This 67-nucleotide RNA from Pomacea canaliculata belongs to the Rfam family "mir-1994 microRNA precursor family".
RNA sequence: CUCAGGGGCGGUCACUCUGAUCUCCAUGUGCUCGCACCAGCAUGAGACAGUGUGUCCUCCCUUGAGG
Numbered sequence: 001c002u003c004a005g006g007g008g009c010g011g012u013c014a015c016u017c018u019g020a021u022c023u024c025c026a027u028g029u030g031c032u033c034g035c036a037c038c039a040g041c042a043u044g045a046g047a048c049a050g051u052g053u054g055u056c057c058u059c060c061c062u063u064g065a066g067g
Stems, first nucleotide, its partner, number of pairs: 002065002006060003010056002013054003017050002021047003026043003
The family's consensus secondary structure was predicted with RNAalifold. The match comes from Rfam's covariance-model search (57 bits).